[Rfam]
A member of the RNA family "U4 spliceosomal RNA" from Periconia digitata, 135 nucleotides long. A search with the family's covariance model found it, with a score of 83 bits. U4 small nuclear RNA (U4 snRNA) is a component of the major U2-dependent spliceosome. By type it is a spliceosomal small nuclear RNA. Rfam links the family to the GO terms spliceosomal tri-snRNP complex assembly and U4 snRNP.
RNA sequence: AUCCCGGUGCAUGGGCAGGUAACCUGGCCAGUGAAGAUUUAUCUGAGGCGGGUUCUUUGCUGAUUGUGAACUACAAUCUUGACUGCUCCUGUUGGUCUUCGGAUCGGCAGGGAAUUUUUGAAACCUUUUCUUAUG
Numbered sequence: 001a002u003c004c005c006g007g008u009g010c011a012u013g014g015g016c017a018g019g020u021a022a023c024c025u026g027g028c029c030a031g032u033g034a035a036g037a038u039u040u041a042u043c044u045g046a047g048g049c050g051g052g053u054u055c056u057u058u059g060c061u062g063a064u065u066g067u068g069a070a071c072u073a074c075a076a077u078c079u080u081g082a083c084u085g086c087u088c089c090u091g092u093u094g095g096u097c098u099u100c101g102g103a104u105c106g107g108c109a110g111g112g113a114a115u116u117u118u119u120g121a122a123a124c125c126u127u128u129u130c131u132u133a134u135g
Stems, first nucleotide, its partner, number of pairs: 021054005027049003035044003087112011126135001128133001